[Rfam]
RNA sequence: GCCGAGCUCAGUUGCGUGAGCUUGUAACCCAAGUGGGGGCAUUAAAGUGAUAGAACGUAUUGGCUUGGCUCUUGUUGGGUGGGGUUCAAAGGUGCAAUAAACUGACUUGCCCGAUCCAAGUUGGGAGUUGAAUCCUGUGGACUAGGCGUAGGCCUGAAUCACAUGGUUCCUAAAGAGAUGGGUACUGCGCCAGGCUGGUUUCACAGAGCAGCGAAAACCUUCCGCUCCCAACAGUGGAAGGAUAACAAGACGGGUGUACCUUGGGCCCAUCGUGCCCCAAGAGCUGACCUCAAUCGGACUAUCACUUUU
Numbered sequence: 001g002c003c004g005a006g007c008u009c010a011g012u013u014g015c016g017u018g019a020g021c022u023u024g025u026a027a028c029c030c031a032a033g034u035g036g037g038g039g040c041a042u043u044a045a046a047g048u049g050a051u052a053g054a055a056c057g058u059a060u061u062g063g064c065u066u067g068g069c070u071c072u073u074g075u076u077g078g079g080u081g082g083g084g085u086u087c088a089a090a091g092g093u094g095c096a097a098u099a100a101a102c103u104g105a106c107u108u109g110c111c112c113g114a115u116c117c118a119a120g121u122u123g124g125g126a127g128u129u130g131a132a133u134c135c136u137g138u139g140g141a142c143u144a145g146g147c148g149u150a151g152g153c154c155u156g157a158a159u160c161a162c163a164u165g166g167u168u169c170c171u172a173a174a175g176a177g178a179u180g181g182g183u184a185c186u187g188c189g190c191c192a193g194g195c196u197g198g199u200u201u202c203a204c205a206g207a208g209c210a211g212c213g214a215a216a217a218c219c220u221u222c223c224g225c226u227c228c229c230a231a232c233a234g235u236g237g238a239a240g241g242a243u244a245a246c247a248a249g250a251c252g253g254g255u256g257u258a259c260c261u262u263g264g265g266c267c268c269a270u271c272g273u274g275c276c277c278c279a280a281g282a283g284c285u286g287a288c289c290u291c292a293a294u295c296g297g298a299c300u301a302u303c304a305c306u307u308u309u
Stems, first nucleotide, its partner, number of pairs: 001040003004023007028037003044308010056296002060293003063289001065287010077277004082268008091260004096255001102253003106249004111241002115238004120232009130169005136163005143156005170175001177222002180219002186215001188213003195206003

The family of this 309-nucleotide RNA sequence from Protea cynaroides is "Plant signal recognition particle RNA". By type it is a non-coding RNA gene. The family has 63 seed sequences and 4,988 matches in Rfam 15.1. The base pairs follow the family's consensus structure, which is taken from published work. Lineage of the source: Eukaryota > Viridiplantae > Embryophyta > Tracheophyta > Protea.